Notes: A member of the RNA family "Ribosomal protein L10 leader" from Geomicrobium sp. JCM 19038, 147 nucleotides long. It scores 68 bits against the family's covariance model. The source organism's lineage runs through Bacteria, Bacillati, Bacilli, Caryophanales and Geomicrobium. It is annotated as a cis-regulatory leader.
RNA sequence: UAAUAGCUAAAUAUACUGCCGCAGACAGUAGGUGCACGAUUGUGCGUAAAUCCUGCCGAGGUAUCGAUCCUAUAAAAUGACACUGCGUGUCAUUCGGAAUCUCCUCUGUCUGUGUGCUCAUGGACAGGGGAGUUUUUUGAUCCUCUG
Numbered sequence: 001u002a003a004u005a006g007c008u009a010a011a012u013a014u015a016c017u018g019c020c021g022c023a024g025a026c027a028g029u030a031g032g033u034g035c036a037c038g039a040u041u042g043u044g045c046g047u048a049a050a051u052c053c054u055g056c057c058g059a060g061g062u063a064u065c066g067a068u069c070c071u072a073u074a075a076a077a078u079g080a081c082a083c084u085g086c087g088u089g090u091c092a093u094u095c096g097g098a099a100u101c102u103c104c105u106c107u108g109u110c111u112g113u114g115u116g117c118u119c120a121u122g123g124a125c126a127g128g129g130g131a132g133u134u135u136u137u138u139g140a141u142c143c144u145c146u147g
Stems, first nucleotide, its partner, number of pairs: 028056005034045003101132014